[Rfam]
RNA sequence: UAGAACCGUCGCGACUGGCGUGAGGUGGAUAACCACCAGGGAGCGGCACCAUGAGACCUAUCCGGACCGCGCGCCUGGGCCCAGGGU
Dot-bracket structure: ..(....(((((..(([[[[[...((((....))))..))..)))))....)...........((.((..]]]]]..)).)).....
The record is an 87-nucleotide RNA from Zhihengliuella halotolerans, which matches "ZMP/ZTP riboswitch aptamer (pfl RNA motif)" in Rfam. Taxonomically the source falls in Zhihengliuella (Bacteria, Actinomycetes, Micrococcales, Micrococcaceae). It scores 47 bits against the family's covariance model.